[Rfam]
RNA sequence: UACUGGUCGUAUACCCUGUAGUACCGAGCGAUGUCUGAGUUUUUGGUUGCAUACACGAUCGGUUACUGGGUGCACGACUUAAUUC
Numbered sequence: 001u002a003c004u005g006g007u008c009g010u011a012u013a014c015c016c017u018g019u020a021g022u023a024c025c026g027a028g029c030g031a032u033g034u035c036u037g038a039g040u041u042u043u044u045g046g047u048u049g050c051a052u053a054c055a056c057g058a059u060c061g062g063u064u065a066c067u068g069g070g071u072g073c074a075c076g077a078c079u080u081a082a083u084u085c
Stems, first nucleotide, its partner, number of pairs: 012072004018066004024062002028060001032057003036053001039050002